[Rfam]
RNA sequence: GACCUAAACCGUUCGAGCAAUCGGCGGCAUGGUUCCAAAACGUUUCCACGUAGAGAGCUCCUAGUCAGAGCACGUGGAAACGUCAUAUCUCGAAAGGGGUAUGGGUCCCGCAAGGAUC
Numbered sequence: 001g002a003c004c005u006a007a008a009c010c011g012u013u014c015g016a017g018c019a020a021u022c023g024g025c026g027g028c029a030u031g032g033u034u035c036c037a038a039a040a041c042g043u044u045u046c047c048a049c050g051u052a053g054a055g056a057g058c059u060c061c062u063a064g065u066c067a068g069a070g071c072a073c074g075u076g077g078a079a080a081c082g083u084c085a086u087a088u089c090u091c092g093a094a095a096g097g098g099g100u101a102u103g104g105g106u107c108c109c110g111c112a113a114g115g116a117u118c
Stems, first nucleotide, its partner, number of pairs: 001034004009027004014023002041082011057071004084103008104118005

The family of this 118-nucleotide RNA is "LOOT RNA". Rfam's curators put it in the seed alignment.